The record is a 64-nucleotide sequence from Myotis brandtii, which matches "mir-9242 microRNA precursor family" in Rfam.
RNA sequence: GGCCUCCCUCUGCAGAGCCAUCAAUUGUGGAACCCCACAAUUGAUCGCCCUGCAGAGGGAGGCU
Numbered sequence: 001g002g003c004c005u006c007c008c009u010c011u012g013c014a015g016a017g018c019c020a021u022c023a024a025u026u027g028u029g030g031a032a033c034c035c036c037a038c039a040a041u042u043g044a045u046c047g048c049c050c051u052g053c054a055g056a057g058g059g060a061g062g063c064u
Stems, first nucleotide, its partner, number of pairs: 001064015017048002020045011